[Rfam]
The record is a 558-nucleotide part of an RNA from Trichinella pseudospiralis, which matches "Eukaryotic large subunit ribosomal RNA" in Rfam.

RNA sequence: CCUUCCGAAGUUUCCCUCAGGAUAGCUGGCAUUUGUGUGUAACAAUUUUAUCCGGUAGAGCGAAUGAUUAGAGGUGUUGGGAACGCAAUGUUCUCAGCCUAUUCUCAAACUUCGAAUGGGUAAGCAAGGCGAUUUGCUUUGAUCAUCUGUUGAUGAAAUCGCCCAACUUUUUUGUGUUGAAGAAUGUAUAAAUGCCUAGUGGGCCAAUUUUGGUAAGCAGAACUGGCGAUGUGGAAUGAACCAAAAGUCAGGUUAAGGUGCCAGACAUUGGCGCUCAUGAAAUACCAGAAAAGGUGUUGGUCGAUAUAGACAGCAGGACGGUGGCCAUGGAAGUUGGAAUCCGCCAAGGAGUGUGUAACAACUCACCUGCCGAAUCGACUAGCCCUGAAAAUGGAUAGCGUUUGAGCGCCAGGCCCAUACCUGACCGUCUCAGUUACGCACUUUUGUUGUUUCAAUGAUGAAGGUGUAAUGAACGUUGAGACGGGUAGGAAGGUCGCGACAGUGUUGCUUUGAAGAGUUUUGAGCGUGAGCUCGCUCGGAGCCGCUGUUGGUGCAGAU
Numbered sequence: 001c002c003u004u005c006c007g008a009a010g011u012u013u014c015c016c017u018c019a020g021g022a023u024a025g026c027u028g029g030c031a032u033u034u035g036u037g038u039g040u041a042a043c044a045a046u047u048u049u050a051u052c053c054g055g056u057a058g059a060g061c062g063a064a065u066g067a068u069u070a071g072a073g074g075u076g077u078u079g080g081g082a083a084c085g086c087a088a089u090g091u092u093c094u095c096a097g098c099c100u101a102u103u104c105u106c107a108a109a110c111u112u113c114g115a116a117u118g119g120g121u122a123a124g125c126a127a128g129g130c131g132a133u134u135u136g137c138u139u140u141g142a143u144c145a146u147c148u149g150u151u152g153a154u155g156a157a158a159u160c161g162c163c164c165a166a167c168u169u170u171u172u173u174g175u176g177u178u179g180a181a182g183a184a185u186g187u188a189u190a191a192a193u194g195c196c197u198a199g200u201g202g203g204c205c206a207a208u209u210u211u212g213g214u215a216a217g218c219a220g221a222a223c224u225g226g227c228g229a230u231g232u233g234g235a236a237u238g239a240a241c242c243a244a245a246a247g248u249c250a251g252g253u254u255a256a257g258g259u260g261c262c263a264g265a266c267a268u269u270g271g272c273g274c275u276c277a278u279g280a281a282a283u284a285c286c287a288g289a290a291a292a293g294g295u296g297u298u299g300g301u302c303g304a305u306a307u308a309g310a311c312a313g314c315a316g317g318a319c320g321g322u323g324g325c326c327a328u329g330g331a332a333g334u335u336g337g338a339a340u341c342c343g344c345c346a347a348g349g350a351g352u353g354u355g356u357a358a359c360a361a362c363u364c365a366c367c368u369g370c371c372g373a374a375u376c377g378a379c380u381a382g383c384c385c386u387g388a389a390a391a392u393g394g395a396u397a398g399c400g401u402u403u404g405a406g407c408g409c410c411a412g413g414c415c416c417a418u419a420c421c422u423g424a425c426c427g428u429c430u431c432a433g434u435u436a437c438g439c440a441c442u443u444u445u446g447u448u449g450u451u452u453c454a455a456u457g458a459u460g461a462a463g464g465u466g467u468a469a470u471g472a473a474c475g476u477u478g479a480g481a482c483g484g485g486u487a488g489g490a491a492g493g494u495c496g497c498g499a500c501a502g503u504g505u506u507g508c509u510u511u512g513a514a515g516a517g518u519u520u521u522g523a524g525c526g527u528g529a530g531c532u533c534g535c536u537c538g539g540a541g542c543c544g545c546u547g548u549u550g551g552u553g554c555a556g557a558u
Base pairs, nucleotide, nucleotide: 001493002492003491004490005489006488011024013022014021015020028196029195030194031193032192033191047124048123049122050121051120052119053118058113059111060110065107066106067105070102072100073099074098077097078096079095080094081093082092084090127178128177132173203227204226205225206224208222209221210220211219212218232243233242234241247425248424249423250422251421253419257415258414259413266412268411272408273407274406292386293385294384296383297382298381299380300379301378302377303376304375305374313370314369315368316367317366319343320342321341325337326336344348349364353362354361426483427482428481429480430479431478432477433476434475495553497550498549499548500547501546502545503544504543507542508541515537516536523532524531525530